[Rfam]
RNA sequence: AAGCGAAGGUCCCAGCGGAGAGGUAAUGGACUCUGAUAUUGAGACCUCUCCAACACUAUUUUAUGUAUCCUUCGCACAAUCACUCGCCGAAUCGUAAGAUGCCCAGAAUUUUCUCACAUUUUUGGAGCAUCUGGAACCCUCGGCUAUAUAAUA
Numbered sequence: 001a002a003g004c005g006a007a008g009g010u011c012c013c014a015g016c017g018g019a020g021a022g023g024u025a026a027u028g029g030a031c032u033c034u035g036a037u038a039u040u041g042a043g044a045c046c047u048c049u050c051c052a053a054c055a056c057u058a059u060u061u062u063a064u065g066u067a068u069c070c071u072u073c074g075c076a077c078a079a080u081c082a083c084u085c086g087c088c089g090a091a092u093c094g095u096a097a098g099a100u101g102c103c104c105a106g107a108a109u110u111u112u113c114u115c116a117c118a119u120u121u122u123u124g125g126a127g128c129a130u131c132u133g134g135a136a137c138c139c140u141c142g143g144c145u146a147u148a149u150a151a152u153a
Stems, first nucleotide, its partner, number of pairs: 003075007011020001013018001026049001031043003035039001086144005098131002101128002103125006
RNA: Small nucleolar RNA snoR145